[Rfam]
RNA: Small nucleolar RNA R11/Z151
Nucleotides: 087
Base pairs, nucleotide, nucleotide: 001087002086003085004084005083
Number, partner (000 for none) and nucleotide at each position: 001087g002086g003085g004084c005083u006000u007000a008000u009000g010000a011000u012000g013000a014000u015000a016000a017000a018000u019000c020000u021000a022000u023000u024000u025000a026000u027000c028000u029000u030000a031000g032000c033000g034000g035000a036000u037000u038000u039000c040000a041000g042000u043000g044000a045000g046000g047000u048000a049000u050000u051000u052000a053000u054000a055000u056000c057000a058000a059000u060000g061000a062000u063000c064000u065000g066000a067000u068000u069000g070000u071000u072000a073000c074000a075000c076000a077000c078000a079000c080000u081000g082000a083005a084004g085003c086002c087001u